This 248-nucleotide part of an RNA from Alloprevotella tannerae belongs to the Rfam family "Bacterial large subunit ribosomal RNA". The family is grouped with related families in Rfam's "LSU clan". It is one of the family's seed sequences. Taxonomically the source falls in Alloprevotella tannerae (Bacteria, Bacteroidia, Prevotellaceae, Alloprevotella).
[Rfam]
RNA sequence: AGGAAAACUGCGCGUCUCCGGCACUAGUACGAGAGGACCGUGCCGGACGGACCUCCGGUUUACCGGUUGUGGCGCCAGCCGCAUCGCCGGGUAUCCGCGUCCGGAUCGGAUAAGCGCUGAAAGCAUCUAAGCGCGAAGCCUGUCGCAAGAUAAGUUUUCCUUCCAGGGUCGUCAAAGACUAUGACGUUGAUAGGGUGCAGGUGUAAAGGCGGCGACGCCAAAGCCGAGCACUACUAAUUGCCCGAAAC
Numbered sequence: 001a002g003g004a005a006a007a008c009u010g011c012g013c014g015u016c017u018c019c020g021g022c023a024c025u026a027g028u029a030c031g032a033g034a035g036g037a038c039c040g041u042g043c044c045g046g047a048c049g050g051a052c053c054u055c056c057g058g059u060u061u062a063c064c065g066g067u068u069g070u071g072g073c074g075c076c077a078g079c080c081g082c083a084u085c086g087c088c089g090g091g092u093a094u095c096c097g098c099g100u101c102c103g104g105a106u107c108g109g110a111u112a113a114g115c116g117c118u119g120a121a122a123g124c125a126u127c128u129a130a131g132c133g134c135g136a137a138g139c140c141u142g143u144c145g146c147a148a149g150a151u152a153a154g155u156u157u158u159c160c161u162u163c164c165a166g167g168g169u170c171g172u173c174a175a176a177g178a179c180u181a182u183g184a185c186g187u188u189g190a191u192a193g194g195g196u197g198c199a200g201g202u203g204u205a206a207a208g209g210c211g212g213c214g215a216c217g218c219c220a221a222a223g224c225c226g227a228g229c230a231c232u233a234c235u236a237a238u239u240g241c242c243c244g245a246a247a248c
Base pairs, nucleotide, nucleotide: 002160003159004158005157006156007155008154009153012146013145014144018046019045020044021043022042023041024040048103049102050101051100052099056097057096058095063090064089065088066087067086068083069082070081071080072079073078108140109139114134115133116132117131118130166243167242168241169240170186171185172184173183174182191236192235193234194232195231196230197229198228200225201224204220208219209218210217211216